[Rfam]
RNA sequence: CCCUCCGAGGGGUGCUGCAGCGGGUCUGGACAACCAGUCCCCCGUCAGGCUCGGAGCCAGUGGUUCACCCGAUUCAACCGCACCCAUUCAUU
Numbered sequence: 001c002c003c004u005c006c007g008a009g010g011g012g013u014g015c016u017g018c019a020g021c022g023g024g025u026c027u028g029g030a031c032a033a034c035c036a037g038u039c040c041c042c043c044g045u046c047a048g049g050c051u052c053g054g055a056g057c058c059a060g061u062g063g064u065u066c067a068c069c070c071g072a073u074u075c076a077a078c079c080g081c082a083c084c085c086a087u088u089c090a091u092u
Stems, first nucleotide, its partner, number of pairs: 003056006021044004
RNA: SAH (S-adenosyl-L-homocysteine) riboswitch aptamer